Record summary
Small nucleolar RNA Z266: a 104-nucleotide sequence from Eutrema salsugineum. Rfam 15.1 lists 719 matches to the family in 213 species. Taxonomically the source falls in Eutrema (Eukaryota, Viridiplantae, Tracheophyta, malvids). The base pairs follow the family's consensus structure, which was predicted with PFOLD. The literature on the family includes a 2003 paper in Nucleic Acids Res by Chen et al., "The high diversity of snoRNAs in plants: identification and comparative study of 120 snoRNA genes from Oryza sativa". A search with the family's covariance model found it, with a score of 63 bits.
RNA sequence: AACGGCGAGGAUGAUGAUUAAAUUAGAUGUGCGAAUUGGGGGUAAUUUCCUUUUAAUGAGCUUAAAACUUUUUGAGGCAUAUUCAUAUAUCUGACAUCGCCGUC
Numbered sequence: 001a002a003c004g005g006c007g008a009g010g011a012u013g014a015u016g017a018u019u020a021a022a023u024u025a026g027a028u029g030u031g032c033g034a035a036u037u038g039g040g041g042g043u044a045a046u047u048u049c050c051u052u053u054u055a056a057u058g059a060g061c062u063u064a065a066a067a068c069u070u071u072u073u074g075a076g077g078c079a080u081a082u083u084c085a086u087a088u089a090u091c092u093g094a095c096a097u098c099g100c101c102g103u104c
Stems, first nucleotide, its partner, number of pairs: 002103007010095001